[Rfam]
The record is a 110-nucleotide RNA from Neobacillus mesonae, which matches "BsrF" in Rfam. It is annotated as a small RNA. NCBI's taxonomy places the organism under Bacteria, Bacillati, Bacillota, Bacillaceae, Neobacillus. It scores 98 bits against the family's covariance model. The base pairs follow the family's consensus structure, which was predicted with WAR.
Nucleotides: 110
Base pairs, nucleotide, nucleotide: 014077015076016075018073024071025070026069027068028067029066030065031064034043035042046063047062049060050059087110088109089108090107091106092105093104094103095102
Number, partner (000 for none) and nucleotide at each position: 001000g002000c003000g004000a005000u006000g007000a008000g009000c010000u011000g012000a013000a014077u015076u016075g017000u018073g019000u020000a021000a022000g023000u024071c025070g026069a027068a028067a029066a030065a031064c032000a033000u034043u035042c036000c037000a038000u039000u040000a041000c042035g043034g044000a045000a046063c047062g048000c049060a050059c051000a052000a053000u054000g055000u056000g057000g058000a059050g060049u061000g062047c063046g064031g065030u066029u067028u068027u069026u070025c071024g072000c073018c074000u075016c076015a077014a078000u079000a080000c081000g082000c083000g084000a085000a086000a087110g088109a089108c090107g091106c092105c093104u094103g095102u096000u097000u098000a099000u100000a101000a102095a103094c104093a105092g106091g107090c108089g109088u110087c